[Rfam]
RNA: Molybdenum/Tungsten riboswitch aptamer (Moco RNA motif)
Organism: Aminithiophilus ramosus
RNA sequence: UUAUUCAUACGCCUCCGAGCCCGACGGCCUAAAGGGACCUCCCCACGGCACCGGGCCGAUAGGGUGGAGCCGGAAACGGCUUCGCCUCCCUGCGGAAAGGAGGAAACCGGUGCGGUCC
Numbered sequence: 001u002u003a004u005u006c007a008u009a010c011g012c013c014u015c016c017g018a019g020c021c022c023g024a025c026g027g028c029c030u031a032a033a034g035g036g037a038c039c040u041c042c043c044c045a046c047g048g049c050a051c052c053g054g055g056c057c058g059a060u061a062g063g064g065u066g067g068a069g070c071c072g073g074a075a076a077c078g079g080c081u082u083c084g085c086c087u088c089c090c091u092g093c094g095g096a097a098a099g100g101a102g103g104a105a106a107c108c109g110g111u112g113c114g115g116u117c118c
Base pairs, nucleotide, nucleotide: 006109012103013102014101015100016099019056020055021054022053023052027049028048029047034043035042036041062087063086064085065084066083067082068081069080070079071078072077088095089094